A member of the RNA family "FMN riboswitch aptamer (RFN element)" from Rhizobium sp. Leaf371, 166 nucleotides long.
RNA sequence: GUACGUUCUCAGGGCGGGGUGAAACUCCCCACCGGCGGUAACAGGCGUGAAUGUCUGGAGCCCGCGAGCGCUUCAGGUCGUUCGGCAUCAGCCGCACGUCGUGAAGGUCAGCAGAUCCGGUGUGAUUCCGGAGCCGACGGUAUAGUCCGGAUGAAAGAGAGCAAAC
Numbered sequence: 001g002u003a004c005g006u007u008c009u010c011a012g013g014g015c016g017g018g019g020u021g022a023a024a025c026u027c028c029c030c031a032c033c034g035g036c037g038g039u040a041a042c043a044g045g046c047g048u049g050a051a052u053g054u055c056u057g058g059a060g061c062c063c064g065c066g067a068g069c070g071c072u073u074c075a076g077g078u079c080g081u082u083c084g085g086c087a088u089c090a091g092c093c094g095c096a097c098g099u100c101g102u103g104a105a106g107g108u109c110a111g112c113a114g115a116u117c118c119g120g121u122g123u124g125a126u127u128c129c130g131g132a133g134c135c136g137a138c139g140g141u142a143u144a145g146u147c148c149g150g151a152u153g154a155a156a157g158a159g160a161g162c163a164a165a166c
Stems, first nucleotide, its partner, number of pairs: 005162006017029003031146002033136002035065004060134002068112002116132005138149003
Background: About the family: The RFN element is a highly conserved domain that is found frequently in the 5'-untranslated regions of prokaryotic mRNAs that encode for flavin mononucleotide (FMN) biosynthesis and transport proteins.